[Rfam]
RNA sequence: UGAUGUCCCUCACCCACCCCUGAAGAUCCCAGGUGGCUGAGGGAAGACAUUGGUCC
Numbered sequence: 001u002g003a004u005g006u007c008c009c010u011c012a013c014c015c016a017c018c019c020c021u022g023a024a025g026a027u028c029c030c031a032g033g034u035g036g037c038u039g040a041g042g043g044a045a046g047a048c049a050u051u052g053g054u055c056c
Base pairs, nucleotide, nucleotide: 006044007043008042009041010040011039014036015035016034017033018032025056028053029052
Dot-bracket structure: .....((((((..(((((......[..[[..)))))..)))))).......]]..]
Rfam assigns this 56-nucleotide RNA from Myotis davidii to the family "Antizyme RNA frameshifting stimulation element".
From the family's description: This family represents a structural element which is found in antizyme mRNA and is known to promote frameshifting.
Rfam links the family to the GO term translational frameshifting.
The match comes from Rfam's covariance-model search (53 bits).
It is annotated as a frameshift element.
Lineage of the source: Eukaryota > Dipnotetrapodomorpha > Tetrapoda > Boreoeutheria > Myotis.
On this family, see Ivanov et al., J Mol Biol 2004: "Identification of a new antizyme mRNA +1 frameshifting stimulatory pseudoknot in a subset of diverse invertebrates and its apparent absence in intermediate species".